[Rfam]
RNA sequence: GAGGAUUGGUCUCUCGGCUGGGAGUGAUUAGGCACACCAGUCAAACCGCCUUAUGGGGCUUUCCUUUCACGGGUUGGUCUUGAGCGAUAAGGUUAAAUGCACUACCUGUGUUGU
Numbered sequence: 001g002a003g004g005a006u007u008g009g010u011c012u013c014u015c016g017g018c019u020g021g022g023a024g025u026g027a028u029u030a031g032g033c034a035c036a037c038c039a040g041u042c043a044a045a046c047c048g049c050c051u052u053a054u055g056g057g058g059c060u061u062u063c064c065u066u067u068c069a070c071g072g073g074u075u076g077g078u079c080u081u082g083a084g085c086g087a088u089a090a091g092g093u094u095a096a097a098u099g100c101a102c103u104a105c106c107u108g109u110g111u112u113g114u
Base pairs, nucleotide, nucleotide: 001015002014003013004012016042017041018040019039020038021037024035025034026033049092050091051090052089053088054087055081056080058078059077060076063073064072065071099114100113101112103110
RNA: Group II catalytic intron D1-D4-2
Organism: Flavobacterium sp. CS20